[Rfam]
RNA: mir-276 microRNA precursor family
Organism: Rhodnius prolixus
RNA sequence: UUGGCGAAGGACCGGAAGCGAGGUAUAGAGUUCCUACGUUGUUUUAUUAAUUUCCGGUAGGAACUUCAUACCGUGCUCUUGGUCCUAGCACAU
Number, nucleotide and partner (000 for none) at each position: 001u000002u000003g000004g000005c000006g000007a000008a000009g000010g000011a000012c082013c081014g080015g000016a000017a077018g076019c075020g074021a000022g072023g071024u070025a069026u068027a000028g066029a065030g064031u063032u062033c061034c060035u059036a058037c057038g000039u000040u000041g000042u000043u000044u000045u000046a000047u000048u000049a000050a000051u000052u000053u000054c000055c000056g000057g037058u036059a035060g034061g033062a032063a031064c030065u029066u028067c000068a026069u025070a024071c023072c022073g000074u020075g019076c018077u017078c000079u000080u014081g013082g012083u000084c000085c000086u000087a000088g000089c000090a000091c000092a000093u000